[Rfam]
RNA sequence: CCUACCGCUUCUCCUCCCUGAGCGGGCACCGUUCGUCCCUAUUCGAACGGUUGUUAUUUCCCCCGGCUGACCGGCCGGGGGCUUUUUAU
Numbered sequence: 001c002c003u004a005c006c007g008c009u010u011c012u013c014c015u016c017c018c019u020g021a022g023c024g025g026g027c028a029c030c031g032u033u034c035g036u037c038c039c040u041a042u043u044c045g046a047a048c049g050g051u052u053g054u055u056a057u058u059u060c061c062c063c064c065g066g067c068u069g070a071c072c073g074g075c076c077g078g079g080g081g082c083u084u085u086u087u088a089u
Base pairs, nucleotide, nucleotide: 005025006024007023008022009021028051029050030049031048032047033046034045060081061080062079063078064077065076066075067074